[Rfam]
RNA: Group II catalytic intron D1-D4-3
RNA sequence: UUUUCGGCGACGAAAGGGUCUGAAGGAAGCUGAUGGCGGUUAUUGGAACGGAACGCAAGUAAACCAAUGUUGGCAUAUGUGGCGGAUAACCUUCCAUAAAGUGGGAAUGUCCUAAAAUUAGCUUAGCUACAUGUGUUAGGAUGGUCGUUUUAAUAACAGGCGGAGUGA
Numbered sequence: 001u002u003u004u005c006g007g008c009g010a011c012g013a014a015a016g017g018g019u020c021u022g023a024a025g026g027a028a029g030c031u032g033a034u035g036g037c038g039g040u041u042a043u044u045g046g047a048a049c050g051g052a053a054c055g056c057a058a059g060u061a062a063a064c065c066a067a068u069g070u071u072g073g074c075a076u077a078u079g080u081g082g083c084g085g086a087u088a089a090c091c092u093u094c095c096a097u098a099a100a101g102u103g104g105g106a107a108u109g110u111c112c113u114a115a116a117a118u119u120a121g122c123u124u125a126g127c128u129a130c131a132u133g134u135g136u137u138a139g140g141a142u143g144g145u146c147g148u149u150u151u152a153a154u155a156a157c158a159g160g161c162g163g164a165g166u167g168a
Stems, first nucleotide, its partner, number of pairs: 001016006030167001036161002041155011064144003068140001073136003077132007084112004090105003